The family of this 599-nucleotide part of an RNA from Adineta vaga is "Eukaryotic small subunit ribosomal RNA". Rfam links the family to the GO terms ribosome and structural constituent of ribosome.

[Rfam]
RNA sequence: GGCUUUCCUUUGUCUUGAAGAUUAAGCCAUGCAUGUCUAAGUAUGAACUGGUUUAAGGUGAAACUGCGUACGGCUCAUUACAUCAGCUAUAACUUUCUUUGAUCAUAAAUUCUAAAUGGAAUAACCGAGGAAAAGCCUGGGCUAAUACAUGCGACAAUUCCGGUAGUAAUAUCGGAAUGCUUUUAUUAGAUCAAAACCUUCUAGUUCUUUAACCGGAACUGUUUGUUGGUGACUCUAAAUAACUUUGUGUUGAUCGUAUGACCUUUGUGUCGACGACAUAUCUUUCAAGUGUCUGACUUAUCAACUUUAGACGGUACAUUAUAUGUCUACCGUGGUUGUAACGAGUACAGAGAAUCAGGGUUUGGUUCUGGAGAGGCCGCCUGAGAAACGGCGACCACUUCCAAGGAAGGCAGCAGGCGCGCAAAUUACCCACUCUCAAAACGAGGAGGUAGUGAAGAGAAAUAACGAUGUUAGUCUUAUUUAGGCUGACAAUCGGAAUGGGAACACUGUAAACAGGUUAUCGAUUAACAAUUGGAGGGCAAGUCUGGUGCCAGCAGCCGCGGUAAUUCCAGCUCCAAUAAGGAAAACUAAAGUUGCUG
Numbered sequence: 001g002g003c004u005u006u007c008c009u010u011u012g013u014c015u016u017g018a019a020g021a022u023u024a025a026g027c028c029a030u031g032c033a034u035g036u037c038u039a040a041g042u043a044u045g046a047a048c049u050g051g052u053u054u055a056a057g058g059u060g061a062a063a064c065u066g067c068g069u070a071c072g073g074c075u076c077a078u079u080a081c082a083u084c085a086g087c088u089a090u091a092a093c094u095u096u097c098u099u100u101g102a103u104c105a106u107a108a109a110u111u112c113u114a115a116a117u118g119g120a121a122u123a124a125c126c127g128a129g130g131a132a133a134a135g136c137c138u139g140g141g142c143u144a145a146u147a148c149a150u151g152c153g154a155c156a157a158u159u160c161c162g163g164u165a166g167u168a169a170u171a172u173c174g175g176a177a178u179g180c181u182u183u184u185a186u187u188a189g190a191u192c193a194a195a196a197c198c199u200u201c202u203a204g205u206u207c208u209u210u211a212a213c214c215g216g217a218a219c220u221g222u223u224u225g226u227u228g229g230u231g232a233c234u235c236u237a238a239a240u241a242a243c244u245u246u247g248u249g250u251u252g253a254u255c256g257u258a259u260g261a262c263c264u265u266u267g268u269g270u271c272g273a274c275g276a277c278a279u280a281u282c283u284u285u286c287a288a289g290u291g292u293c294u295g296a297c298u299u300a301u302c303a304a305c306u307u308u309a310g311a312c313g314g315u316a317c318a319u320u321a322u323a324u325g326u327c328u329a330c331c332g333u334g335g336u337u338g339u340a341a342c343g344a345g346u347a348c349a350g351a352g353a354a355u356c357a358g359g360g361u362u363u364g365g366u367u368c369u370g371g372a373g374a375g376g377c378c379g380c381c382u383g384a385g386a387a388a389c390g391g392c393g394a395c396c397a398c399u400u401c402c403a404a405g406g407a408a409g410g411c412a413g414c415a416g417g418c419g420c421g422c423a424a425a426u427u428a429c430c431c432a433c434u435c436u437c438a439a440a441a442c443g444a445g446g447a448g449g450u451a452g453u454g455a456a457g458a459g460a461a462a463u464a465a466c467g468a469u470g471u472u473a474g475u476c477u478u479a480u481u482u483a484g485g486c487u488g489a490c491a492a493u494c495g496g497a498a499u500g501g502g503a504a505c506a507c508u509g510u511a512a513a514c515a516g517g518u519u520a521u522c523g524a525u526u527a528a529c530a531a532u533u534g535g536a537g538g539g540c541a542a543g544u545c546u547g548g549u550g551c552c553a554g555c556a557g558c559c560g561c562g563g564u565a566a567u568u569c570c571a572g573c574u575c576c577a578a579u580a581a582g583g584a585a586a587a588c589u590a591a592a593g594u595u596g597c598u599g
Stems, first nucleotide, its partner, number of pairs: 001589002004586007013460004019453001020420001026418003030415003035067002040065003047059002074373003083296004089290002094288002101282003116150003125141002128138003157178005164171002183242005196230003204213003254276004259272004297345003304336003311333006318326001348370004352363004375396002378393003398409004426451001428450003434446004466495003469491009502522002504519001506518003532578006545572004554561002